[Rfam]
RNA sequence: UGGGUAAAUAAUUGUAAGUUGCUUUGGAGAAAAGCAUCUGCUAAAUGAGUAAAU
Dot-bracket structure: ............((((...((((((.....))))))..))).)...........